This 116-nucleotide RNA sequence from Gordonia aichiensis belongs to the Rfam family "Actinobacteria sRNA Ms_IGR-7". The match comes from Rfam's covariance-model search (46 bits). The literature on the family includes a 2013 paper in RNA by Li et al., "Identification of small RNAs in Mycobacterium smegmatis using heterologous Hfq".

RNA sequence: ACGAGAUGCCCUUCUGCGUGCACGGAUGGAAACCUAGACAAUUCCCAUUCUGUCACUCAGACAGGGCAUUUCGUCUAUCCCUCACCGCCCAAACGAAUACGAAUCGGUGGAUCGAG
Numbered sequence: 001a002c003g004a005g006a007u008g009c010c011c012u013u014c015u016g017c018g019u020g021c022a023c024g025g026a027u028g029g030a031a032a033c034c035u036a037g038a039c040a041a042u043u044c045c046c047a048u049u050c051u052g053u054c055a056c057u058c059a060g061a062c063a064g065g066g067c068a069u070u071u072c073g074u075c076u077a078u079c080c081c082u083c084a085c086c087g088c089c090c091a092a093a094c095g096a097a098u099a100c101g102a103a104u105c106g107g108u109g110g111a112u113c114g115a116g
Base pairs, nucleotide, nucleotide: 002073003072004071005070006069007068008067009066010065011064012063014060015059016058018056019055020054024050025049026048027047029045031043032042094114095113096112098111100109101108